[Rfam]
RNA: Salmonella enterica sRNA STnc40
Organism: Buttiauxella agrestis
RNA sequence: ACAGUGUCAUGGCCGUUUAAGCUAAGCACUUAAUUGUCGAUAAAGGCGCAGCUUGCUGCGCCUUUUUU
Numbered sequence: 001a002c003a004g005u006g007u008c009a010u011g012g013c014c015g016u017u018u019a020a021g022c023u024a025a026g027c028a029c030u031u032a033a034u035u036g037u038c039g040a041u042a043a044a045g046g047c048g049c050a051g052c053u054u055g056c057u058g059c060g061c062c063u064u065u066u067u068u
Stems, first nucleotide, its partner, number of pairs: 003018002006013002042065010